RNA sequence: GCGAGAACAUCUGGAGAGCGGCGCGCACGCGCCCACCGAAGGAGAUUUCCGUGCCGGCGCGUCCAGCGCCGGCACGGAAAGAAACUCUCAGGUACAUGGACAGAUGGGGCACA
Numbered sequence: 001g002c003g004a005g006a007a008c009a010u011c012u013g014g015a016g017a018g019c020g021g022c023g024c025g026c027a028c029g030c031g032c033c034c035a036c037c038g039a040a041g042g043a044g045a046u047u048u049c050c051g052u053g054c055c056g057g058c059g060c061g062u063c064c065a066g067c068g069c070c071g072g073c074a075c076g077g078a079a080a081g082a083a084a085c086u087c088u089c090a091g092g093u094a095c096a097u098g099g100a101c102a103g104a105u106g107g108g109g110c111a112c113a
Stems, first nucleotide, its partner, number of pairs: 008106006020033004035093003038089002042087003048080001
Notes:
A member of the RNA family "Glycine riboswitch aptamer" from Paraburkholderia caffeinitolerans, 113 nucleotides long. It scores 57 bits against the family's covariance model. NCBI's taxonomy places the organism under Bacteria, Pseudomonadati, Pseudomonadota, Burkholderiaceae, Paraburkholderia.